[Rfam]
This 120-nucleotide sequence from Evansella cellulosilytica belongs to the Rfam family "SAM riboswitch aptamer (S box leader)". Taxonomically the source falls in Evansella cellulosilytica (Bacteria, Bacillota, Bacilli, Caryophanales). It scores 68 bits against the family's covariance model.
RNA sequence: CUCUUAUCCUGAGAUGGCGGAGGGACAGGCCCAAAGAAGCCCAGCAACCAUCACCGUGUUGACAAGGUGAACGGUGCUAACCUGCAGGACAUGUAUUUUGCGUGUCUUGACCGAUAAGAG
Numbered sequence: 001c002u003c004u005u006a007u008c009c010u011g012a013g014a015u016g017g018c019g020g021a022g023g024g025a026c027a028g029g030c031c032c033a034a035a036g037a038a039g040c041c042c043a044g045c046a047a048c049c050a051u052c053a054c055c056g057u058g059u060u061g062a063c064a065a066g067g068u069g070a071a072c073g074g075u076g077c078u079a080a081c082c083u084g085c086a087g088g089a090c091a092u093g094u095a096u097u098u099u100g101c102g103u104g105u106c107u108u109g110a111c112c113g114a115u116a117a118g119a120g
Base pairs, nucleotide, nucleotide: 001120002119003118004117005116006115007114008113013042016041017040018039022032023031024030026084027083028082029081043078044077045076046075048074049073051070052069053068054067085109086108087107088106089105090104091103092102093101094100